[Rfam]
RNA: Plastid-ycf3 group II-D1 intron
Organism: Mikania micrantha
RNA sequence: AUUCCUUCUGUCAUGUAUCCUCGAUUAAUGCAUCUUCAGAUGCU
Numbered sequence: 001a002u003u004c005c006u007u008c009u010g011u012c013a014u015g016u017a018u019c020c021u022c023g024a025u026u027a028a029u030g031c032a033u034c035u036u037c038a039g040a041u042g043c044u
Stems, first nucleotide, its partner, number of pairs: 010025003032044001034042001